[Rfam]
The record is a 127-nucleotide sequence from Peromyscus maniculatus, which matches "Small nucleolar RNA SNORA31" in Rfam. The base pairs follow the family's consensus structure, which was predicted with RNAalifold. Taxonomically the source falls in Peromyscus maniculatus (Eukaryota, Opisthokonta, Chordata, Rodentia). Rfam's curators write: ACA31 (SNORA31) belongs to the H/ACA class of snoRNAs which are thought to guide the sites of modification of uridines to pseudouridines. Rfam links the family to the GO terms nucleolus and RNA processing.

RNA sequence: CUGUAUCCACUGAUGGACUUUGAACAGUUAGUAGCUGCUCUUCUGGUUUACUCUAAGAUGUAAAAGAAAAUGCUCCCUGAGCUUUCUGUAUGCCUUUGUAGUCAAGAUUGAUGUGGGGAGUACGUCG
Numbered sequence: 001c002u003g004u005a006u007c008c009a010c011u012g013a014u015g016g017a018c019u020u021u022g023a024a025c026a027g028u029u030a031g032u033a034g035c036u037g038c039u040c041u042u043c044u045g046g047u048u049u050a051c052u053c054u055a056a057g058a059u060g061u062a063a064a065a066g067a068a069a070a071u072g073c074u075c076c077c078u079g080a081g082c083u084u085u086c087u088g089u090a091u092g093c094c095u096u097u098g099u100a101g102u103c104a105a106g107a108u109u110g111a112u113g114u115g116g117g118g119a120g121u122a123c124g125u126c127g
Stems, first nucleotide, its partner, number of pairs: 002062006012051001014050006022040002025037004074119006082110001085107003093101001
Dot-bracket structure: .((((((....(.((((((..((.((((.....)))).))....))))))).....))))))...........((((((..(..(((.....(.......)...)))..)...))))))........

Description:
For this family Rfam cites "RNomics: an experimental approach that identifies 201 candidates for novel, small, non-messenger RNAs in mouse" (Huttenhofer et al., EMBO J, 2001).